[Rfam]
RNA: TPP riboswitch aptamer (THI element)
Organism: Carnobacterium iners
Nucleotides: 101
Base pairs, nucleotide, nucleotide: 006089007088008087009086010085011053012052013051014050017026018025019024034046035045036044037043059082060081061080062079063076064075065074066073
Number, partner (000 for none) and nucleotide at each position: 001000a002000c003000c004000a005000u006089c007088a008087c009086a010085a011053a012052g013051g014050g015000g016000u017026g018025c019024u020000g021000u022000a023000a024019a025018g026017c027000u028000g029000a030000g031000a032000u033000u034046g035045a036044a037043u038000c039000u040000u041000u042000g043037a044036u045035u046034c047000u048000a049000a050014c051013c052012c053011u054000u055000c056000g057000a058000a059082c060081c061080u062079g063076u064075u065074c066073g067000u068000u069000a070000g071000u072000a073066c074065g075064a076063g077000c078000g079062u080061a081060g082059g083000g084000a085010u086009u087008g088007u089006g090000a091000c092000g093000g094000g095000g096000c097000a098000a099000c100000u101000g